[Rfam]
RNA: Alphaproteobacterial sRNA BjrC1505
Organism: Nitratireductor indicus
RNA sequence: ACAGUGUCAUUAACCCAUUAUUAAGCUUUACAGGCGUUUACUGUGUUCAUCCAGUGAUCUGGAUUCUUACCGAGUGGCUGGAGCCAUUCUGUUUGACGCCUCCCUGUUUAAACUCCUGAGAGCCGCCUCCGCGGCUCUUUUUUU
Numbered sequence: 001a002c003a004g005u006g007u008c009a010u011u012a013a014c015c016c017a018u019u020a021u022u023a024a025g026c027u028u029u030a031c032a033g034g035c036g037u038u039u040a041c042u043g044u045g046u047u048c049a050u051c052c053a054g055u056g057a058u059c060u061g062g063a064u065u066c067u068u069a070c071c072g073a074g075u076g077g078c079u080g081g082a083g084c085c086a087u088u089c090u091g092u093u094u095g096a097c098g099c100c101u102c103c104c105u106g107u108u109u110a111a112a113c114u115c116c117u118g119a120g121a122g123c124c125g126c127c128u129c130c131g132c133g134g135c136u137c138u139u140u141u142u143u144u
Stems, first nucleotide, its partner, number of pairs: 001044003004016001017039001026033002049064004072089006095108004118139009